[Rfam]
RNA sequence: ACACGGAAAGGAGGUGGUCCGAAGCAAUGAAGUCUUUUCGGAUGAGUGAGGUGGCUGCGCGCUAGUCGCAGCUCGAAGCUCGGCCGCGAAUCCAACGCAGCCACCCGACCCGCAGGCUCCCGGACAUCAUCCCCCGGGGCGACGGCCUGCGGGUCGUUCCAU
Numbered sequence: 001a002c003a004c005g006g007a008a009a010g011g012a013g014g015u016g017g018u019c020c021g022a023a024g025c026a027a028u029g030a031a032g033u034c035u036u037u038u039c040g041g042a043u044g045a046g047u048g049a050g051g052u053g054g055c056u057g058c059g060c061g062c063u064a065g066u067c068g069c070a071g072c073u074c075g076a077a078g079c080u081c082g083g084c085c086g087c088g089a090a091u092c093c094a095a096c097g098c099a100g101c102c103a104c105c106c107g108a109c110c111c112g113c114a115g116g117c118u119c120c121c122g123g124a125c126a127u128c129a130u131c132c133c134c135c136g137g138g139g140c141g142a143c144g145g146c147c148u149g150c151g152g153g154u155c156g157u158u159c160c161a162u
Stems, first nucleotide, its partner, number of pairs: 014058005060088003063083001065081001068079002106156013120137004

Record summary:
Actinobacteria sRNA Ms_IGR-5: a 162-nucleotide RNA from Nocardioides seonyuensis. The family's RNA type in Rfam is small RNA.